RNA sequence: UAAACCCUGCUGAACCGAAGUCUAACGCGCCGCGUCAGAUAUUUUUUAGGUGAAGCGGGGUUUA
Numbered sequence: 001u002a003a004a005c006c007c008u009g010c011u012g013a014a015c016c017g018a019a020g021u022c023u024a025a026c027g028c029g030c031c032g033c034g035u036c037a038g039a040u041a042u043u044u045u046u047u048a049g050g051u052g053a054a055g056c057g058g059g060g061u062u063u064a
Stems, first nucleotide, its partner, number of pairs: 001064011014051003020040004025035004